Annotation:
The family of this 124-nucleotide RNA from Glycine soja is "MIR1520 microRNA precursor family". Gene Ontology terms of the family: miRNA-mediated post-transcriptional gene silencing and RISC complex. Pairs were carried over by alignment from the consensus structure, which was predicted with RNAalifold. The source organism's lineage runs through Eukaryota, Streptophytina, Magnoliopsida, fabids and Glycine subgen. Soja. Rfam 15.1 lists 1,934 matches to the family in 15 species.
RNA sequence: CACAAUUGGGACGUUGACCGUUAACCACGUGUCAUGUUCUGAUUAGUCAAUAAAAACAACAAUUCAUUUGAUCUUUCAUGGAAUUGACAUCCAAUCAAAACAUAACAUGUGAUAGUCAUCAUCC
Numbered sequence: 001c002a003c004a005a006u007u008g009g010g011a012c013g014u015u016g017a018c019c020g021u022u023a024a025c026c027a028c029g030u031g032u033c034a035u036g037u038u039c040u041g042a043u044u045a046g047u048c049a050a051u052a053a054a055a056a057c058a059a060c061a062a063u064u065c066a067u068u069u070g071a072u073c074u075u076u077c078a079u080g081g082a083a084u085u086g087a088c089a090u091c092c093a094a095u096c097a098a099a100a101c102a103u104a105a106c107a108u109g110u111g112a113u114a115g116u117c118a119u120c121a122u123c124c
Stems, first nucleotide, its partner, number of pairs: 020113004029108002034103002037100002040097001042095003